Shown here is a 164-nucleotide sequence from Phtheirospermum japonicum, a member of the family "U12 minor spliceosomal RNA". The organism belongs to Phtheirospermum, within Eukaryota. The literature on the family includes a 1997 paper in Trends Biochem Sci by Tarn and Steitz, "Pre-mRNA splicing: the discovery of a new spliceosome doubles the challenge". Pairs were carried over by alignment from the consensus structure.

RNA sequence: UUGCCUUAAACUAAUGAGUAAGGAAAACAAAGCGGGCGGUGAGAACUGGCCGCAGCACCCAUAAUGUAACACACGAGUGGUGCAACUCAUUUUUGGAGGGGUUAUAGGCUGGCCAAGUGUUGACGCUGCUUACUUUGCAGAACUCGCUUGAGCGGGCCUCCCUA
Numbered sequence: 001u002u003g004c005c006u007u008a009a010a011c012u013a014a015u016g017a018g019u020a021a022g023g024a025a026a027a028c029a030a031a032g033c034g035g036g037c038g039g040u041g042a043g044a045a046c047u048g049g050c051c052g053c054a055g056c057a058c059c060c061a062u063a064a065u066g067u068a069a070c071a072c073a074c075g076a077g078u079g080g081u082g083c084a085a086c087u088c089a090u091u092u093u094u095g096g097a098g099g100g101g102u103u104a105u106a107g108g109c110u111g112g113c114c115a116a117g118u119g120u121u122g123a124c125g126c127u128g129c130u131u132a133c134u135u136u137g138c139a140g141a142a143c144u145c146g147c148u149u150g151a152g153c154g155g156g157c158c159u160c161c162c163u164a
Stems, first nucleotide, its partner, number of pairs: 004023005032053004037048003055083004099163003106159005112153001114150002117147003126140004
Dot-bracket structure: ...(((((..........)))))........((((.(((......))).)))).((((.....................))))...............(((....(((((.(.((.(((......((((.......))))....))).))..).))))).))).